[Rfam]
RNA sequence: CGCUGCCUUGUCAAAUUCAGUGUUUCCUCUACAAUGGACCGUACUGACCCGUAAUGGCUGCCACAGUGAAACUGUAGUUAUGGGACCCACAACCAUACAGAAAGGGUGUUAGGGAUAAUAUAAGUCCAUCCAGUA
Numbered sequence: 001c002g003c004u005g006c007c008u009u010g011u012c013a014a015a016u017u018c019a020g021u022g023u024u025u026c027c028u029c030u031a032c033a034a035u036g037g038a039c040c041g042u043a044c045u046g047a048c049c050c051g052u053a054a055u056g057g058c059u060g061c062c063a064c065a066g067u068g069a070a071a072c073u074g075u076a077g078u079u080a081u082g083g084g085a086c087c088c089a090c091a092a093c094c095a096u097a098c099a100g101a102a103a104g105g106g107u108g109u110u111a112g113g114g115a116u117a118a119u120a121u122a123a124g125u126c127c128a129u130c131c132a133g134u135a
Stems, first nucleotide, its partner, number of pairs: 002061002005058001018046006027037002074127001076125001078123002086114003091109001
Dot-bracket structure: .((.(............((((((...((.......))...))))))...........).))............(.(.((......(((..(.................)..))).......)).).)........